RNA sequence: GGGAUGUGAUGAGUGGUAUCUGCUCGCUGUAAUCUGCGAGAGGGGUGUCCGCCCCAACCAAGCCUGUUACGACAAUGGGCCGCCCCAAUGACUUACCAUCUGAUCCC
Numbered sequence: 001g002g003g004a005u006g007u008g009a010u011g012a013g014u015g016g017u018a019u020c021u022g023c024u025c026g027c028u029g030u031a032a033u034c035u036g037c038g039a040g041a042g043g044g045g046u047g048u049c050c051g052c053c054c055c056a057a058c059c060a061a062g063c064c065u066g067u068u069a070c071g072a073c074a075a076u077g078g079g080c081c082g083c084c085c086c087a088a089u090g091a092c093u094u095a096c097c098a099u100c101u102g103a104u105c106c107c
Stems, first nucleotide, its partner, number of pairs: 001107004014098005023040005042086006049079001064078004